This 322-nucleotide RNA sequence from Profundicola chukchiensis belongs to the Rfam family "Bacterial RNase P class A". A search with the family's covariance model found it, with a score of 189 bits. Its Rfam clan is "RNaseP clan".
RNA sequence: CAUUUCAGUCGGCUUGUCGCUUAUUUCGCUUUAGAAUUAAGAGGAAAGUCCGGACACCAUAGUGCGAUGCAAUGGGUAACACCCAUCACUCUAAAUCUUUGAUUUAGGGGAGGACCAGUGCAACAGAAAGUAUGUACAGUUCGGCUGUAGUGAAACCAGGUAAACUCUGUGUGGUGCAAUGCUAUGUAUAUCAGCUGUUAAGAGUUGCACGCUCGAUGCUGAGGGGUAAGCAGCUAGAGCAUUGCAGUAAUGUAAUGCCCAGAUAAAUGACAAGCAAUCGUUUCGACGAGAACAGAAUCCGGCUUAUAGACUGAAUUUUUUU
Numbered sequence: 001c002a003u004u005u006c007a008g009u010c011g012g013c014u015u016g017u018c019g020c021u022u023a024u025u026u027c028g029c030u031u032u033a034g035a036a037u038u039a040a041g042a043g044g045a046a047a048g049u050c051c052g053g054a055c056a057c058c059a060u061a062g063u064g065c066g067a068u069g070c071a072a073u074g075g076g077u078a079a080c081a082c083c084c085a086u087c088a089c090u091c092u093a094a095a096u097c098u099u100u101g102a103u104u105u106a107g108g109g110g111a112g113g114a115c116c117a118g119u120g121c122a123a124c125a126g127a128a129a130g131u132a133u134g135u136a137c138a139g140u141u142c143g144g145c146u147g148u149a150g151u152g153a154a155a156c157c158a159g160g161u162a163a164a165c166u167c168u169g170u171g172u173g174g175u176g177c178a179a180u181g182c183u184a185u186g187u188a189u190a191u192c193a194g195c196u197g198u199u200a201a202g203a204g205u206u207g208c209a210c211g212c213u214c215g216a217u218g219c220u221g222a223g224g225g226g227u228a229a230g231c232a233g234c235u236a237g238a239g240c241a242u243u244g245c246a247g248u249a250a251u252g253u254a255a256u257g258c259c260c261a262g263a264u265a266a267a268u269g270a271c272a273a274g275c276a277a278u279c280g281u282u283u284c285g286a287c288g289a290g291a292a293c294a295g296a297a298u299c300c301g302g303c304u305u306a307u308a309g310a311c312u313g314a315a316u317u318u319u320u321u322u
Base pairs, nucleotide, nucleotide: 002317004315005314006313007312008311009310010309011307012275013274014273015272016271017270018269020041021040022039023038025036026035027034046305047304048303050302051301052300053299054298055176056175057174058173062210063209064208065207067172068171069170070169071168072086073085074084075083076082087112089109090108091107092106093105094104095103096102113167114166118165119164120161121160135149136148137147138146139145140144180232181231182230183229191222192221193220194219195218202214203213204212205211239258240257241256242255243254244253245252246251